Overview: This 118-nucleotide RNA from Microcaecilia unicolor belongs to the Rfam family "Small nucleolar RNA SNORA49". The family has 21 seed sequences and 722 matches in Rfam 15.1. The match comes from Rfam's covariance-model search (37 bits). NCBI's taxonomy places the organism under Eukaryota, Opisthokonta, Metazoa, Sarcopterygii, Microcaecilia. The family's consensus secondary structure was predicted with RNAalifold.

[Rfam]
RNA sequence: CUCUCUCAGCCAAUCCCAGUGCGUUUAGCUGUAAACGCACUGGGAUUGACUGAGAGAGACCUGAAGGGAGGGACGUCCAAAAAGUUUUGAUUUGGACGUCCUCGCACAUCCCGAUCCG
Numbered sequence: 001c002u003c004u005c006u007c008a009g010c011c012a013a014u015c016c017c018a019g020u021g022c023g024u025u026u027a028g029c030u031g032u033a034a035a036c037g038c039a040c041u042g043g044g045a046u047u048g049a050c051u052g053a054g055a056g057a058g059a060c061c062u063g064a065a066g067g068g069a070g071g072g073a074c075g076u077c078c079a080a081a082a083a084g085u086u087u088u089g090a091u092u093u094g095g096a097c098g099u100c101c102u103c104g105c106a107c108a109u110c111c112c113g114a115u116c117c118g
Stems, first nucleotide, its partner, number of pairs: 003056007011048001016043011066117003070111002072100006080093003